The record is a 150-nucleotide RNA sequence from Bifidobacterium scardovii, which matches "FMN riboswitch aptamer (RFN element)" in Rfam.
Pairs were carried over by alignment from the consensus structure, which is taken from published work.
The match comes from Rfam's covariance-model search (94 bits).

RNA sequence: CGUCAGUUUCAGGGAAGGUGCAAUUCCUUACUGGCGGUAACGGCGCAGCCCGCAUCCAUAUGGGCGCCGCCGAAGCCCGCGACCCGCGCAAGCGGCUGAUCCGGUGGGAUUCCGGAGCCAACGGUACAGUCCGGAUGAAAGAAACGGAGC
Numbered sequence: 001c002g003u004c005a006g007u008u009u010c011a012g013g014g015a016a017g018g019u020g021c022a023a024u025u026c027c028u029u030a031c032u033g034g035c036g037g038u039a040a041c042g043g044c045g046c047a048g049c050c051c052g053c054a055u056c057c058a059u060a061u062g063g064g065c066g067c068c069g070c071c072g073a074a075g076c077c078c079g080c081g082a083c084c085c086g087c088g089c090a091a092g093c094g095g096c097u098g099a100u101c102c103g104g105u106g107g108g109a110u111u112c113c114g115g116a117g118c119c120a121a122c123g124g125u126a127c128a129g130u131c132c133g134g135a136u137g138a139a140a141g142a143a144a145c146g147g148a149g150c
Base pairs, nucleotide, nucleotide: 003148004147006145007144008143009142010141016028017027018026030130031129032120033119034080035079036078037077075118076117084095085094100116101115102114103113104112122133123132124131